[Rfam]
RNA sequence: ACAAGGUACUUCCGCAAAAAGCGACCCGGGUAUUGCAGCCCGGGAGGUGAGAUUCCUAUGG
Numbered sequence: 001a002c003a004a005g006g007u008a009c010u011u012c013c014g015c016a017a018a019a020a021g022c023g024a025c026c027c028g029g030g031u032a033u034u035g036c037a038g039c040c041c042g043g044g045a046g047g048u049g050a051g052a053u054u055c056c057u058a059u060g061g
Stems, first nucleotide, its partner, number of pairs: 011058001013023003025044003029040003045057003
Dot-bracket structure: ..........(.(((.....))).(((.(((......))).)))(((.......))))...
The family of this 61-nucleotide RNA sequence from Ruminococcaceae bacterium FB2012 is "pemK RNA". Lineage of the source: Bacteria > Bacillati > Clostridia > Eubacteriales > Oscillospiraceae. It scores 43 bits against the family's covariance model. By type it is a cis-regulatory element.